The family of this 183-nucleotide sequence from Sphaerimonospora thailandensis is "c-di-AMP riboswitch aptamer (ydaO/yuaA leader)". It scores 69 bits against the family's covariance model.
RNA sequence: CCAGCGACGAUGCCGAAUCUUCAACGCACCUGGUGUGGAGGGGAGCCGGGGACCCAACUGUACGAAUCGGCAAGCGGUCCGGCUCGGCGCCGACUGCUGCUCGAUAACGGGGUGAAUCCGAAAGGUAGGGCUACUCCGGCCCGAACCCGUCAGCUAACCCGGUAGGCGUCAAGCAGUGCCGUA
Numbered sequence: 001c002c003a004g005c006g007a008c009g010a011u012g013c014c015g016a017a018u019c020u021u022c023a024a025c026g027c028a029c030c031u032g033g034u035g036u037g038g039a040g041g042g043g044a045g046c047c048g049g050g051g052a053c054c055c056a057a058c059u060g061u062a063c064g065a066a067u068c069g070g071c072a073a074g075c076g077g078u079c080c081g082g083c084u085c086g087g088c089g090c091c092g093a094c095u096g097c098u099g100c101u102c103g104a105u106a107a108c109g110g111g112g113u114g115a116a117u118c119c120g121a122a123a124g125g126u127a128g129g130g131c132u133a134c135u136c137c138g139g140c141c142c143g144a145a146c147c148c149g150u151c152a153g154c155u156a157a158c159c160c161g162g163u164a165g166g167c168g169u170c171a172a173g174c175a176g177u178g179c180c181g182u183a
Base pairs, nucleotide, nucleotide: 011168012167013166014165018044019043020042021041022040045163046162047161048160049159050158055109110148111147112146118125119124128142129141130140131139